[Rfam]
RNA sequence: GACGACCGGCCGGAACCGAUGAGCUCCGGCCCACAAGUGGAGGCUCCGCUCUCCCACCUGGCCGCCCUCAGGGUGGCGGGUCACCGGUCAGGCGGUGCCCAUCGUUCCGUACGGACGAUGGAACCCGCCCGAUGUGCGCCCCGCGGUACGCCGUGGCGGUGCUCCGGUAUGACGAGGAGCCCCGCCUGUGUCCCGUCCGGGGCGUUUUUC
Numbered sequence: 001g002a003c004g005a006c007c008g009g010c011c012g013g014a015a016c017c018g019a020u021g022a023g024c025u026c027c028g029g030c031c032c033a034c035a036a037g038u039g040g041a042g043g044c045u046c047c048g049c050u051c052u053c054c055c056a057c058c059u060g061g062c063c064g065c066c067c068u069c070a071g072g073g074u075g076g077c078g079g080g081u082c083a084c085c086g087g088u089c090a091g092g093c094g095g096u097g098c099c100c101a102u103c104g105u106u107c108c109g110u111a112c113g114g115a116c117g118a119u120g121g122a123a124c125c126c127g128c129c130c131g132a133u134g135u136g137c138g139c140c141c142c143g144c145g146g147u148a149c150g151c152c153g154u155g156g157c158g159g160u161g162c163u164c165c166g167g168u169a170u171g172a173c174g175a176g177g178a179g180c181c182c183c184g185c186c187u188g189u190g191u192c193c194c195g196u197c198c199g200g201g202g203c204g205u206u207u208u209u210c
Stems, first nucleotide, its partner, number of pairs: 004089006012027002028082005034060002037057004041052002061077007091129005099121008138203006144195003152190003155186005161180005

Rfam assigns this 210-nucleotide sequence from Streptomyces kanasensis to the family "Streptomyces RNA 1601". Rfam classes the family as a small RNA. The literature on the family includes a 2011 paper in RNA Biol by Vockenhuber et al., "Deep sequencing-based identification of small non-coding RNAs in Streptomyces coelicolor". From the family's description: Identified by deep sequencing of transcriptome at the end of exponential growth phase. Appears longer on northern blot than sequencing transcript. Streptomyces specific.